[Rfam]
RNA sequence: CUAGCAUUCCCAGGUAGGCCAAGGUGUCCUACAGAAAAACCUCGAGUUCGACCUCCAUUGGGCCUGG
Number, nucleotide and partner (000 for none) at each position: 001c067002u066003a065004g064005c000006a000007u062008u061009c060010c000011c000012a000013g000014g056015u000016a054017g053018g052019c000020c044021a000022a042023g041024g040025u039026g032027u031028c000029c000030u000031a027032c026033a000034g000035a000036a000037a000038a000039a025040c024041c023042u022043c000044g020045a000046g000047u000048u000049c000050g000051a000052c018053c017054u016055c000056c014057a000058u000059u000060g009061g008062g007063c000064c004065u003066g002067g001